[Rfam]
Rfam assigns this 89-nucleotide RNA from Bacteroides thetaiotaomicron to the family "Group II catalytic intron D1-D4-1". Pairs were carried over by alignment from the consensus structure.
RNA sequence: UUGUCUUUACGAAAUGUAUGGAGUAACGCUUGCCGUGAGAAGUCAGCAGAGGUCAUAGUAGUGGGACUGUCGAUAUUCCCAUGAAGGAC
Numbered sequence: 001u002u003g004u005c006u007u008u009a010c011g012a013a014a015u016g017u018a019u020g021g022a023g024u025a026a027c028g029c030u031u032g033c034c035g036u037g038a039g040a041a042g043u044c045a046g047c048a049g050a051g052g053u054c055a056u057a058g059u060a061g062u063g064g065g066a067c068u069g070u071c072g073a074u075a076u077u078c079c080c081a082u083g084a085a086g087g088a089c
Stems, first nucleotide, its partner, number of pairs: 001026002004022003008018003043050002052089003061082006
Overview
Rfam's curators write: Group II introns are found in rRNA, tRNA and mRNA of organelles in fungi, plants and protists, and also in mRNA in bacteria. Taxonomically the source falls in Bacteroides thetaiotaomicron (Bacteria, Pseudomonadati, Bacteroidota, Bacteroidia). Rfam's curators put it in the seed alignment.